[Rfam]
RNA sequence: UUGGCCUCUUUAUGGAAACGAGGGCUGUGGGUGGGCAGGUUGGCUCCUGUCCCCCCGCGGCUCCCGGCCACAUUGGGGCCC
Numbered sequence: 001u002u003g004g005c006c007u008c009u010u011u012a013u014g015g016a017a018a019c020g021a022g023g024g025c026u027g028u029g030g031g032u033g034g035g036c037a038g039g040u041u042g043g044c045u046c047c048u049g050u051c052c053c054c055c056c057g058c059g060g061c062u063c064c065c066g067g068c069c070a071c072a073u074u075g076g077g078g079c080c081c
Stems, first nucleotide, its partner, number of pairs: 003080006014069002019066002022063010033052007

This 81-nucleotide RNA belongs to the Rfam family "SL588 non-coding RNA".
Rfam's curators put it in the seed alignment.
Pairs were carried over by alignment from the consensus structure, which was predicted with RNAfold.
For this family Rfam cites "Functionally conserved architecture of hepatitis C virus RNA genomes" (Mauger et al., Proc Natl Acad Sci U S A, 2015).